[Rfam]
RNA sequence: UACUGUCUCUGUUAGGUGAGGCUCCUAUAUAGAAAUACGCUGCUGCCCGUCAGAUAUCCAGAGAUAUCUGUUUUGGGUCAACAGGAACUGUCGAUUAAGGCUUUUCUUAAUGUAGCUGAUAAUUUUGUCUACGCUGUAUAGUGCUAAAACUCAACGAAGAGAAACAGGA
Number, nucleotide and partner (000 for none) at each position: 001u000002a000003c000004u000005g165006u164007c000008u162009c161010u160011g155012u154013u098014a000015g151016g150017u149018g000019a000020g145021g144022c143023u000024c000025c141026u140027a139028u138029a137030u136031a135032g134033a000034a000035a000036u000037a000038c000039g116040c115041u114042g113043c112044u000045g078046c077047c076048c075049g074050u000051c000052a000053g000054a000055u066056a065057u064058c063059c000060a000061g000062a000063g058064a057065u056066a055067u000068c000069u000070g000071u000072u000073u000074u049075g048076g047077g046078u045079c000080a000081a000082c000083a000084g107085g106086a105087a104088c000089u000090g101091u100092c099093g000094a000095u000096u000097a000098a013099g092100g091101c090102u000103u000104u087105u086106c085107u084108u000109a000110a000111u000112g043113u042114a041115g040116c039117u000118g129119a128120u127121a000122a000123u000124u000125u000126u000127g120128u119129c118130u000131a000132c000133g000134c032135u031136g030137u029138a028139u027140a026141g025142u000143g022144c021145u020146a000147a000148a000149a017150c016151u015152c000153a000154a012155c011156g000157a000158a000159g000160a010161g009162a008163a000164a006165c005166a000167g000168g000169a000